A member of the RNA family "BsrC" from Marinilactibacillus sp. 15R, 87 nucleotides long. About the family: The 301 nucleotide sequence from Kouji Nakamura has been trimmed to a highly conserved ~85 nucleotide long core to form this family. The family's RNA type in Rfam is small RNA. On this family, see Saito et al., Gene 2008: "Novel small RNA-encoding genes in the intergenic regions of Bacillus subtilis". It scores 54 bits against the family's covariance model. The family's consensus secondary structure was predicted with CMfinder.
[Rfam]
RNA sequence: UCUCAUUUAAACAACACAGUCCCUACCUCUACUAUGUCCUUACAACUCUAUAGUUGCGCCAGAUCGAUUAAACUUCGUUAAAACGAU
Dot-bracket structure: ..................................((..(((.(((((....))))).)..))..)).....................